[Rfam]
RNA: SAM riboswitch aptamer (S box leader)
Organism: Desulforudis audaxviator
RNA sequence: CUCUUAUCGAGAGUGGCGGAGGGACUGGCCCGAUGAAGCCCGGCAACCAGUCGGUGGCGGUGGUCACCGGCCAGGUGCUAAUUCCUGCGGGAGAUCGAUUCUUCUGGGAGAUAAGAG
Numbered sequence: 001c002u003c004u005u006a007u008c009g010a011g012a013g014u015g016g017c018g019g020a021g022g023g024a025c026u027g028g029c030c031c032g033a034u035g036a037a038g039c040c041c042g043g044c045a046a047c048c049a050g051u052c053g054g055u056g057g058c059g060g061u062g063g064u065c066a067c068c069g070g071c072c073a074g075g076u077g078c079u080a081a082u083u084c085c086u087g088c089g090g091g092a093g094a095u096c097g098a099u100u101c102u103u104c105u106g107g108g109a110g111a112u113a114a115g116a117g
Base pairs, nucleotide, nucleotide: 001117002116003115004114005113006112007111008110013041015040016039017038021031022030023029025087027085028084042079043078044077045076047075048074050071051070052069053068054067055066056065083109088106089105090104091103092102093101
Dot-bracket structure: ((((((((....(.(((...(((.[.[[)))......))))((((.((.(((((((........)))))))..))))))...(]].]((((((.......))))))..)))))))))